[Rfam]
RNA sequence: CGGGUGGAACCGCAAAGUCUCCGCUCGGGAUUCAACUCGGCGAACGAUCGUGGUGGGGUGCUCGCGGAUCUUCGGACCGGUGCCCCUACCGGCGGUCGCCGCCGGACGCACUUUCCGAGCGGAGAGCGCCACGACCGGUUGGCGGGAGGUCUUAAGCCCCCGGGGAAGGUAGCUCGUUCGGUCGCCUCGGCGGCCGCUUCGAGUGUUAUAGACCCGGGCGGCGUUGGCCCUCCGGCCGACCGUGGACACAGCCGCGCCCGCUCAUGGCUCGGGCCGCCGGCGCUCUCGGCGCGAUCAAAUGGGGCGGACUGUUCUCAGUGCUCUCCGACCGCGUGCCGUCUGCGUCGGUGCUUCCGAGUUGGCGCUCAGGGUCAGUGGCGAGUCGUCGGCCCUCCACCCGACCCGUCUUGAAACACGG
Numbered sequence: 001c002g003g004g005u006g007g008a009a010c011c012g013c014a015a016a017g018u019c020u021c022c023g024c025u026c027g028g029g030a031u032u033c034a035a036c037u038c039g040g041c042g043a044a045c046g047a048u049c050g051u052g053g054u055g056g057g058g059u060g061c062u063c064g065c066g067g068a069u070c071u072u073c074g075g076a077c078c079g080g081u082g083c084c085c086c087u088a089c090c091g092g093c094g095g096u097c098g099c100c101g102c103c104g105g106a107c108g109c110a111c112u113u114u115c116c117g118a119g120c121g122g123a124g125a126g127c128g129c130c131a132c133g134a135c136c137g138g139u140u141g142g143c144g145g146g147a148g149g150u151c152u153u154a155a156g157c158c159c160c161c162g163g164g165g166a167a168g169g170u171a172g173c174u175c176g177u178u179c180g181g182u183c184g185c186c187u188c189g190g191c192g193g194c195c196g197c198u199u200c201g202a203g204u205g206u207u208a209u210a211g212a213c214c215c216g217g218g219c220g221g222c223g224u225u226g227g228c229c230c231u232c233c234g235g236c237c238g239a240c241c242g243u244g245g246a247c248a249c250a251g252c253c254g255c256g257c258c259c260g261c262u263c264a265u266g267g268c269u270c271g272g273g274c275c276g277c278c279g280g281c282g283c284u285c286u287c288g289g290c291g292c293g294a295u296c297a298a299a300u301g302g303g304g305c306g307g308a309c310u311g312u313u314c315u316c317a318g319u320g321c322u323c324u325c326c327g328a329c330c331g332c333g334u335g336c337c338g339u340c341u342g343c344g345u346c347g348g349u350g351c352u353u354c355c356g357a358g359u360u361g362g363c364g365c366u367c368a369g370g371g372u373c374a375g376u377g378g379c380g381a382g383u384c385g386u387c388g389g390c391c392c393u394c395c396a397c398c399c400g401a402c403c404c405g406u407c408u409u410g411a412a413a414c415a416c417g418g
Stems, first nucleotide, its partner, number of pairs: 001400008010389003018123001021122010127380006403418004
Shown here is a 418-nucleotide part of an RNA from Owenia fusiformis, a member of the family "Eukaryotic large subunit ribosomal RNA". Lineage of the source: Eukaryota > Spiralia > Oweniida > Oweniidae > Owenia. A reference for the family is Yusupov et al. (2001), "Crystal structure of the ribosome at 5.5 A resolution", Science. Gene Ontology terms of the family: ribosome and structural constituent of ribosome. It scores 3088 bits against the family's covariance model.